[Rfam]
RNA sequence: UCCUCGCUCAAAGAAUCGCAUUCAAAGCUUACACACAAAAAGAGGGAAGAUAUUUCCCUCUUUUUCAACACCUUUUGCUUUGGGAGAAAGUCCCCGGACAUCCUGCGCUCUGUUUCAGAGUUCUCCAAGUCAGGCAUUGCGGAAACGCGCCGCCAUAGAAGCAAUUCGAUAGCGGCUUACGCCCUAUUCCCACCGGCUCUCGUGUUCGUCGUCCGACAGCUCCUGGCUGGUCACAAUGGGGCGUGCGCUCGGGAGCCGGAGGGGAGAAGGGGGGAUUUCGAUCUUCCCUUGUAUCGGGUUGCCUUUCGUCACAGUUCGAUAGUCAUGCGAUUGCCUUUCGGUCCUACUUUGGUGGGACUGGGAGGUAACUCAAUGGGGCUCAUUCUUGAGGCGAGG
Numbered sequence: 001u002c003c004u005c006g007c008u009c010a011a012a013g014a015a016u017c018g019c020a021u022u023c024a025a026a027g028c029u030u031a032c033a034c035a036c037a038a039a040a041a042g043a044g045g046g047a048a049g050a051u052a053u054u055u056c057c058c059u060c061u062u063u064u065u066c067a068a069c070a071c072c073u074u075u076u077g078c079u080u081u082g083g084g085a086g087a088a089a090g091u092c093c094c095c096g097g098a099c100a101u102c103c104u105g106c107g108c109u110c111u112g113u114u115u116c117a118g119a120g121u122u123c124u125c126c127a128a129g130u131c132a133g134g135c136a137u138u139g140c141g142g143a144a145a146c147g148c149g150c151c152g153c154c155a156u157a158g159a160a161g162c163a164a165u166u167c168g169a170u171a172g173c174g175g176c177u178u179a180c181g182c183c184c185u186a187u188u189c190c191c192a193c194c195g196g197c198u199c200u201c202g203u204g205u206u207c208g209u210c211g212u213c214c215g216a217c218a219g220c221u222c223c224u225g226g227c228u229g230g231u232c233a234c235a236a237u238g239g240g241g242c243g244u245g246c247g248c249u250c251g252g253g254a255g256c257c258g259g260a261g262g263g264g265a266g267a268a269g270g271g272g273g274g275a276u277u278u279c280g281a282u283c284u285u286c287c288c289u290u291g292u293a294u295c296g297g298g299u300u301g302c303c304u305u306u307c308g309u310c311a312c313a314g315u316u317c318g319a320u321a322g323u324c325a326u327g328c329g330a331u332u333g334c335c336u337u338u339c340g341g342u343c344c345u346a347c348u349u350u351g352g353u354g355g356g357a358c359u360g361g362g363a364g365g366u367a368a369c370u371c372a373a374u375g376g377g378g379c380u381c382a383u384u385c386u387u388g389a390g391g392c393g394a395g396g
Stems, first nucleotide, its partner, number of pairs: 002396006008389004014332006022084001023082006038064012089380002092378004107146001240303003247299006256291001258289001259286004269279004334365013

RNase MRP: a 396-nucleotide RNA sequence from Penicillium ucsense. Rfam describes the family as follows. RNase MRP is an enzymatically active ribonucleoprotein with two distinct roles in eukaryotes. The family's RNA type in Rfam is ribozyme.